[Rfam]
Nucleotides: 112
Base pairs, nucleotide, nucleotide: 012029013028014027015026016025040055041054042053043052044051058112059111060110061109062108064102065101066100067099068098069097070096071095073092074091075090076089077088078087
Number, partner (000 for none) and nucleotide at each position: 001000c002000g003000c004000g005000c006000u007000c008000c009000a010000c011000a012029c013028a014027a015026g016025u017000a018000a019000a020000a021000u022000c023000a024000a025016a026015c027014u028013u029012g030000a031000g032000a033000a034000u035000g036000a037000g038000g039000c040055c041054a042053u043052c044051a045000g046000a047000a048000a049000g050000a051044u052043g053042a054041u055040g056000u057000a058112a059111c060110a061109c062108c063000a064102g065101u066100a067099g068098u069097u070096a071095a072000g073092a074091u075090u076089g077088c078087u079000u080000g081000a082000g083000a084000u085000a086000u087078a088077g089076c090075a091074a092073u093000a094000g095071u096070u097069a098068a099067c100066u101065g102064c103000a104000u105000u106000a107000u108062g109061g110060u111059g112058u
Shown here is a 112-nucleotide sequence, a member of the family "COG3943 RNA".